[Rfam]
The family of this 566-nucleotide part of an RNA from candidate division MSBL1 archaeon SCGC-AAA382C18 is "Archaeal large subunit ribosomal RNA". NCBI's taxonomy places the organism under Archaea, Methanobacteriati, Methanobacteriota, candidate division MSBL1. Pairs were carried over by alignment from the consensus structure, which is taken from published work.
RNA sequence: GGGCCCGACACGCCAAGCCCUCUAGUGGAUGGUUAGGCUCGGGUGCUGAUGAAGGUCGUGGCAAGCUGCGAUAAGCCUAGGCGAGGUGCAUGCAGCCUUUGAACCUAGGAUCGCCUAAUGGGACAUCCUGUCAUGGAAAACCCAUGGCACUCGCGGCAGCGAGGGGUAACCCCGUGAAAUGAAACAUCUUAGUACCGGGAGGAAGAGAAAGCAACGGCGAUGCCCUUAGUAACGGCGAGUGAAAAGGGCAUAGGGCAAACCGAACCUGGUCGGGAGACCGACUGGGGAUUUGGUGUUGUAGGGCUCGAUCGCCACCUAAUCGUUCAAGUUGAAGCCCUCUGGAAAGUGGCACCAGAGAGGGUGAUAGUCCCGUAAGCGUAAGACGAAAGGUGUUGGAUCGAGUUCCCUGAGUACCGUGCAUUGGAUUUUGCGCGAGAAGCUGGAAGUAACAACUUCCAACCCUAAACACACCCCGAGACCGAUAGCGAACGCAGUACCGUGAGGGAAAACUGAAAAGUAUCUCGAAAGGGAGAUGAAAAGAGCCUAAAACUAGUUGGUGAUAAAAG
Numbered sequence: 001g002g003g004c005c006c007g008a009c010a011c012g013c014c015a016a017g018c019c020c021u022c023u024a025g026u027g028g029a030u031g032g033u034u035a036g037g038c039u040c041g042g043g044u045g046c047u048g049a050u051g052a053a054g055g056u057c058g059u060g061g062c063a064a065g066c067u068g069c070g071a072u073a074a075g076c077c078u079a080g081g082c083g084a085g086g087u088g089c090a091u092g093c094a095g096c097c098u099u100u101g102a103a104c105c106u107a108g109g110a111u112c113g114c115c116u117a118a119u120g121g122g123a124c125a126u127c128c129u130g131u132c133a134u135g136g137a138a139a140a141c142c143c144a145u146g147g148c149a150c151u152c153g154c155g156g157c158a159g160c161g162a163g164g165g166g167u168a169a170c171c172c173c174g175u176g177a178a179a180u181g182a183a184a185c186a187u188c189u190u191a192g193u194a195c196c197g198g199g200a201g202g203a204a205g206a207g208a209a210a211g212c213a214a215c216g217g218c219g220a221u222g223c224c225c226u227u228a229g230u231a232a233c234g235g236c237g238a239g240u241g242a243a244a245a246g247g248g249c250a251u252a253g254g255g256c257a258a259a260c261c262g263a264a265c266c267u268g269g270u271c272g273g274g275a276g277a278c279c280g281a282c283u284g285g286g287g288a289u290u291u292g293g294u295g296u297u298g299u300a301g302g303g304c305u306c307g308a309u310c311g312c313c314a315c316c317u318a319a320u321c322g323u324u325c326a327a328g329u330u331g332a333a334g335c336c337c338u339c340u341g342g343a344a345a346g347u348g349g350c351a352c353c354a355g356a357g358a359g360g361g362u363g364a365u366a367g368u369c370c371c372g373u374a375a376g377c378g379u380a381a382g383a384c385g386a387a388a389g390g391u392g393u394u395g396g397a398u399c400g401a402g403u404u405c406c407c408u409g410a411g412u413a414c415c416g417u418g419c420a421u422u423g424g425a426u427u428u429u430g431c432g433c434g435a436g437a438a439g440c441u442g443g444a445a446g447u448a449a450c451a452a453c454u455u456c457c458a459a460c461c462c463u464a465a466a467c468a469c470a471c472c473c474c475g476a477g478a479c480c481g482a483u484a485g486c487g488a489a490c491g492c493a494g495u496a497c498c499g500u501g502a503g504g505g506a507a508a509a510c511u512g513a514a515a516a517g518u519a520u521c522u523c524g525a526a527a528g529g530g531a532g533a534u535g536a537a538a539a540g541a542g543c544c545u546a547a548a549a550c551u552a553g554u555u556g557g558u559g560a561u562a563a564a565a566g
Stems, first nucleotide, its partner, number of pairs: 017558003022553004031544001032510002036480002038477006044470002053116004057070003076109006085097003120129003150163005170201001171199004181188002211218002222249005232240002252463004260293003270281004304402004313392003328377003334350001336349002339346001353357001359371003415434006442457005497504002